[Rfam]
RNA sequence: CACACACGGAAGGAGAUUCAGUUCCCGGCACAACGAGCUCUUUUCGGCUGCUCGGCGGGCCGUCUAUGAAGGCCCUGGACUCUUGAUGGAUGUUGGCUCUUAGAGCCGAUGCGAGGGCGGACCGCCGGUUUCCUGGAGUUGCGCUCGAGUCGCCAGCAGAGCCGGGACCCAUCUUGAGUUGGAGUCAAAGUUUCGUACUUGUCCGGCGCUGCAAACGACAACAGCACACAGCAAUUCAACGGGAUCUGGCGCCGGCCAUCGGAUCUGGAGAUGUGUCUAUUGGUCUCUAAGGGCAGGCCGUGACGACAGGUAGCCCUGGUUGUCCUCGUGCCAGAAAUGGUGAGAGGGCAACCCCCCGCAGAUGAGG
Numbered sequence: 001c002a003c004a005c006a007c008g009g010a011a012g013g014a015g016a017u018u019c020a021g022u023u024c025c026c027g028g029c030a031c032a033a034c035g036a037g038c039u040c041u042u043u044u045c046g047g048c049u050g051c052u053c054g055g056c057g058g059g060c061c062g063u064c065u066a067u068g069a070a071g072g073c074c075c076u077g078g079a080c081u082c083u084u085g086a087u088g089g090a091u092g093u094u095g096g097c098u099c100u101u102a103g104a105g106c107c108g109a110u111g112c113g114a115g116g117g118c119g120g121a122c123c124g125c126c127g128g129u130u131u132c133c134u135g136g137a138g139u140u141g142c143g144c145u146c147g148a149g150u151c152g153c154c155a156g157c158a159g160a161g162c163c164g165g166g167a168c169c170c171a172u173c174u175u176g177a178g179u180u181g182g183a184g185u186c187a188a189a190g191u192u193u194c195g196u197a198c199u200u201g202u203c204c205g206g207c208g209c210u211g212c213a214a215a216c217g218a219c220a221a222c223a224g225c226a227c228a229c230a231g232c233a234a235u236u237c238a239a240c241g242g243g244a245u246c247u248g249g250c251g252c253c254g255g256c257c258a259u260c261g262g263a264u265c266u267g268g269a270g271a272u273g274u275g276u277c278u279a280u281u282g283g284u285c286u287c288u289a290a291g292g293g294c295a296g297g298c299c300g301u302g303a304c305g306a307c308a309g310g311u312a313g314c315c316c317u318g319g320u321u322g323u324c325c326u327c328g329u330g331c332c333a334g335a336a337a338u339g340g341u342g343a344g345a346g347g348g349c350a351a352c353c354c355c356c357c358g359c360a361g362a363u364g365a366g367g
Base pairs, nucleotide, nucleotide: 166186167185168184169182170181171180188200189199190198191197
A member of the RNA family "Ascomycota telomerase RNA" from Hirsutella rhossiliensis, 367 nucleotides of a longer RNA. Clan: Telomerase clan. The literature on the family includes a 2013 paper in Nucleic Acids Res by Qi et al., "The common ancestral core of vertebrate and fungal telomerase RNAs". It scores 307 bits against the family's covariance model. Its family is annotated with telomere maintenance via telomerase, telomerase activity and telomerase catalytic core complex in the Gene Ontology. The base pairs follow the family's consensus structure. The family's RNA type in Rfam is non-coding RNA gene.